[Rfam]
RNA sequence: CGCCUUCUCUUUGGGGAGUAGCCUGCUUCCGCCUCACGCGAAAGGGUUGCGUCAACAUACUUGGCCACUGGCCAUGGCGUAACCGGCCGCAAGGCAUGGCGAGACCAUAGAUACUUGCAUGCGUCACCGGGCCGCGUGCGGGUGUCCAUGCGUCGCCCGGUCGGAAUU
Numbered sequence: 001c002g003c004c005u006u007c008u009c010u011u012u013g014g015g016g017a018g019u020a021g022c023c024u025g026c027u028u029c030c031g032c033c034u035c036a037c038g039c040g041a042a043a044g045g046g047u048u049g050c051g052u053c054a055a056c057a058u059a060c061u062u063g064g065c066c067a068c069u070g071g072c073c074a075u076g077g078c079g080u081a082a083c084c085g086g087c088c089g090c091a092a093g094g095c096a097u098g099g100c101g102a103g104a105c106c107a108u109a110g111a112u113a114c115u116u117g118c119a120u121g122c123g124u125c126a127c128c129g130g131g132c133c134g135c136g137u138g139c140g141g142g143u144g145u146c147c148a149u150g151c152g153u154c155g156c157c158c159g160g161u162c163g164g165a166a167u168u
Stems, first nucleotide, its partner, number of pairs: 026044003045084010062074005
A member of the RNA family "Manganese Mn2+ riboswitch aptamer (yybP-ykoY)" from Pollutimonas harenae, 168 nucleotides long.
A search with the family's covariance model found it, with a score of 62 bits.
This RNA was originally discovered in E. coli during a large scale screen and was named SraF. The family was later found to exist upstream of related families of protein genes in many bacteria, including the the yybP and ykoK genes in B. subtilis.
Lineage of the source: Bacteria > Pseudomonadati > Pseudomonadota > Betaproteobacteria > Pollutimonas.
A reference for the family is Argaman et al. (2001), "Novel small RNA-encoding genes in the intergenic regions of Escherichia coli", Curr Biol.